[Rfam]
RNA sequence: ACUGCGUACUUACUUUCUAUAUAGUAGCAGAGAUACAUGCAUUUCUCCUACUAUAUAGUAGGUAAGUACGUGGUUU
Number, nucleotide and partner (000 for none) at each position: 001a074002c073003u072004g071005c070006g069007u068008a067009c066010u065011u064012a063013c062014u061015u060016u000017c058018u057019a056020u055021a054022u053023a052024g051025u050026a049027g048028c000029a046030g045031a044032g000033a042034u041035a000036c000037a000038u000039g000040c000041a034042u033043u000044u031045c030046u029047c000048c027049u026050a025051c024052u023053a022054u021055a020056u019057a018058g017059u000060a015061g014062g013063u012064a011065a010066g009067u008068a007069c006070g005071u004072g003073g002074u001075u000076u000
About this RNA:
mir-7563 microRNA precursor family: a 76-nucleotide sequence from Ameiurus melas. The base pairs follow the family's consensus structure, which was predicted with RNAalifold. Rfam 15.1 lists 362 matches to the family in 2 species. The match comes from Rfam's covariance-model search (83 bits).